mir-218 microRNA precursor family: a 76-nucleotide RNA sequence from Megalops atlanticus. Rfam links the family to the GO terms miRNA-mediated post-transcriptional gene silencing and RISC complex. The family's consensus secondary structure was predicted with RNAalifold. The match comes from Rfam's covariance-model search (68 bits).

[Rfam]
RNA sequence: CGGGACCCCAUUGUGCUUGAUCUAACCAUGUGGUUCCAGUUUUGUCCAUGGUUCUGCCAAGCACUUUGGAGGCUUG
Numbered sequence: 001c002g003g004g005a006c007c008c009c010a011u012u013g014u015g016c017u018u019g020a021u022c023u024a025a026c027c028a029u030g031u032g033g034u035u036c037c038a039g040u041u042u043u044g045u046c047c048a049u050g051g052u053u054c055u056g057c058c059a060a061g062c063a064c065u066u067u068g069g070a071g072g073c074u075u076g
Base pairs, nucleotide, nucleotide: 001076002075003074004073006071008069009068013064014063015062016061017060018059019058024053025052026051027050028049029048030047